[Rfam]
RNA sequence: GCCCCGGUAGCUCAGACUGGUGGAGCGUCGGCCUCGUAAGGCUUAGAGUAACAGGGGGUUCGAGAAAGCCGAAGGUCCCGGGUUCAAAUCCCGGCCGGGGCU
Numbered sequence: 001g002c003c004c005c006g007g008u009a010g011c012u013c014a015g016a017c018u019g020g021u022g023g024a025g026c027g028u029c030g031g032c033c034u035c036g037u038a039a040g041g042c043u044u045a046g047a048g049u050a051a052c053a054g055g056g057g058g059u060u061c062g063a064g065a066a067a068g069c070c071g072a073a074g075g076u077c078c079c080g081g082g083u084u085c086a087a088a089u090c091c092c093g094g095c096c097g098g099g100g101c102u
Base pairs, nucleotide, nucleotide: 001101002100003099004098005097006096007095010026011025012024013023028072029071030070031069032068078094079093080092081091082090
RNA: tRNA
Organism: Infirmifilum lucidum